[Rfam]
RNA sequence: CCCACACCCAUGUGUGUAGGACCCCAAAUGAUCACCAUUAAAUUUGGCACAGAUCUCUAGAAAAAUUAUGAUAUGGGUGUGUGACUUGAUUUUUCCAGAGAUCUGUGACAAAUUUAAUGGUGAUCAUUUGAGGUCUUGCACACAUGGGUGUGAG
Numbered sequence: 001c002c003c004a005c006a007c008c009c010a011u012g013u014g015u016g017u018a019g020g021a022c023c024c025c026a027a028a029u030g031a032u033c034a035c036c037a038u039u040a041a042a043u044u045u046g047g048c049a050c051a052g053a054u055c056u057c058u059a060g061a062a063a064a065a066u067u068a069u070g071a072u073a074u075g076g077g078u079g080u081g082u083g084a085c086u087u088g089a090u091u092u093u094u095c096c097a098g099a100g101a102u103c104u105g106u107g108a109c110a111a112a113u114u115u116a117a118u119g120g121u122g123a124u125c126a127u128u129u130g131a132g133g134u135c136u137u138g139c140a141c142a143c144a145u146g147g148g149u150g151u152g153a154g
Stems, first nucleotide, its partner, number of pairs: 003152011015140009025130004030125003034121013048107011060095009071080003

A member of the RNA family "MIR8565 microRNA precursor family" from Amborella trichopoda, 154 nucleotides long. The base pairs follow the family's consensus structure, which was predicted with RNAalifold. Taxonomically the source falls in Amborella (Eukaryota, Viridiplantae, Euphyllophyta, Spermatophyta).